[Rfam]
RNA sequence: CAGGGAGAAGCCGAAAACCCCAAAAAGAGUAGGCA
Dot-bracket structure: ..(((....[[[.....)))...........]]].